RNA sequence: AAAAACCAAAACAACGAAAGCCCUGCCUCUCUUUCAUCCUUACGGCUCCUAGGCCGUGCCAGUAUGAAUCAGUUGUUUGGAUAAACC
Numbered sequence: 001a002a003a004a005a006c007c008a009a010a011a012c013a014a015c016g017a018a019a020g021c022c023c024u025g026c027c028u029c030u031c032u033u034u035c036a037u038c039c040u041u042a043c044g045g046c047u048c049c050u051a052g053g054c055c056g057u058g059c060c061a062g063u064a065u066g067a068a069u070c071a072g073u074u075g076u077u078u079g080g081a082u083a084a085a086c087c
Base pairs, nucleotide, nucleotide: 034067035066036065039062040061041058042057043056044055045054046053047052
Shown here is an 87-nucleotide sequence from Bacillus sp. SJS, a member of the family "BsrC". Pairs were carried over by alignment from the consensus structure, which was predicted with CMfinder. By type it is a small RNA. Rfam describes the family as follows. The 301 nucleotide sequence from Kouji Nakamura has been trimmed to a highly conserved ~85 nucleotide long core to form this family. The match comes from Rfam's covariance-model search (88 bits). The organism belongs to Bacillus, within Bacteria.